The record is an 86-nucleotide RNA from Anolis carolinensis, which matches "small Cajal body-specific RNA 18" in Rfam. A search with the family's covariance model found it, with a score of 52 bits. The family has 20 seed sequences and 406 matches in Rfam 15.1. By type it is a small Cajal body RNA. Pairs were carried over by alignment from the consensus structure, which was predicted with PFOLD. On this family, see Tycowski et al., Curr Biol 2004: "Guide RNAs with 5' caps and novel box C/D snoRNA-like domains for modification of snRNAs in metazoa". NCBI's taxonomy places the organism under Eukaryota, Deuterostomia, Amniota, Bifurcata, Anolis.
RNA sequence: UGGUCUGUGAUGAAUAGCCCACUGCGCAAUCUGAGUUCUGUAGAACCCAAUGAUGGAUUUUGUGCUUUCGAAGGCAUCUGAGACCA
Numbered sequence: 001u002g003g004u005c006u007g008u009g010a011u012g013a014a015u016a017g018c019c020c021a022c023u024g025c026g027c028a029a030u031c032u033g034a035g036u037u038c039u040g041u042a043g044a045a046c047c048c049a050a051u052g053a054u055g056g057a058u059u060u061u062g063u064g065c066u067u068u069c070g071a072a073g074g075c076a077u078c079u080g081a082g083a084c085c086a
Base pairs, nucleotide, nucleotide: 002085003084004083005082039049040048